[Rfam]
RNA: Caenorhabditis snoRNA ceN104
Organism: Caenorhabditis bovis
RNA sequence: CUGCAGGCCGUCGCGGGUUCACUCGCGCUUCGUGGUUCUGCACAUUUAAGGACCACGAUACUGAUUGGCUUGCUAUAAAAUGUUCGCUCGAGAUGCGUGUACCGAAUUGUUUCUCAAUGCGAUUUGGUUCCUUAUCCCCUCGGGACAUUU
Numbered sequence: 001c002u003g004c005a006g007g008c009c010g011u012c013g014c015g016g017g018u019u020c021a022c023u024c025g026c027g028c029u030u031c032g033u034g035g036u037u038c039u040g041c042a043c044a045u046u047u048a049a050g051g052a053c054c055a056c057g058a059u060a061c062u063g064a065u066u067g068g069c070u071u072g073c074u075a076u077a078a079a080a081u082g083u084u085c086g087c088u089c090g091a092g093a094u095g096c097g098u099g100u101a102c103c104g105a106a107u108u109g110u111u112u113c114u115c116a117a118u119g120c121g122a123u124u125u126g127g128u129u130c131c132u133u134a135u136c137c138c139c140u141c142g143g144g145a146c147a148u149u150u
Stems, first nucleotide, its partner, number of pairs: 003073006012027002015024003030058002033055005087144006095136001101128010